Rfam assigns this 84-nucleotide sequence from Bombyx mori to the family "mir-2807 microRNA precursor family". A search with the family's covariance model found it, with a score of 71 bits. A reference for the family is Liu et al. (2010), "MicroRNAs of Bombyx mori identified by Solexa sequencing", BMC Genomics. The organism belongs to Bombyx, within Eukaryota. Its family is annotated with miRNA-mediated post-transcriptional gene silencing and RISC complex in the Gene Ontology.

RNA sequence: UUAAUUCAAAUUCAUAUGGAGUUCGAACGUUUGCCUGUGUUUGCCACUAGGGGCGCUGUUCCAACUGCACACAAAUGUAUGUUA
Numbered sequence: 001u002u003a004a005u006u007c008a009a010a011u012u013c014a015u016a017u018g019g020a021g022u023u024c025g026a027a028c029g030u031u032u033g034c035c036u037g038u039g040u041u042u043g044c045c046a047c048u049a050g051g052g053g054c055g056c057u058g059u060u061c062c063a064a065c066u067g068c069a070c071a072c073a074a075a076u077g078u079a080u081g082u083u084a
Stems, first nucleotide, its partner, number of pairs: 008078001010076003015071001018068001020066004025061005034052003039047002